[Rfam]
RNA: UnaL2 LINE 3' element
RNA sequence: AAUGUACCAAUUUGUAAGUCGCUCUGGAUAAGAGCGUCUGCUAAAUGUAAAUGU
Numbered sequence: 001a002a003u004g005u006a007c008c009a010a011u012u013u014g015u016a017a018g019u020c021g022c023u024c025u026g027g028a029u030a031a032g033a034g035c036g037u038c039u040g041c042u043a044a045a046u047g048u049a050a051a052u053g054u
Stems, first nucleotide, its partner, number of pairs: 013043001014041003020036006